[Rfam]
RNA sequence: UAUGUCAAGAAGAAACAUGCCGUUUCUCACCUUACAGCAUUGCUAGUUAGGUUUGAUUUUAAAUUUUGGUUAUUAUUGAGGGCGGCAUUUGUCGUCCUUUUGUUUUGUU
Number, nucleotide and partner (000 for none) at each position: 001u000002a000003u000004g000005u000006c000007a000008a000009g000010a000011a027012g026013a025014a024015a023016c022017a000018u000019g000020c000021c000022g016023u015024u014025u013026c012027u011028c000029a052030c051031c050032u000033u000034a047035c046036a000037g043038c042039a000040u000041u000042g038043c037044u000045a000046g035047u034048u000049a000050g031051g030052u029053u000054u000055g000056a000057u000058u000059u000060u000061a000062a000063a000064u000065u000066u000067u000068g000069g000070u000071u000072a000073u000074u000075a000076u000077u000078g000079a000080g000081g096082g095083c094084g093085g092086c091087a000088u000089u000090u000091g086092u085093c084094g083095u082096c081097c000098u000099u000100u000101u000102g000103u000104u000105u000106u000107g000108u000109u000
RNA: Ribosomal protein L20 leader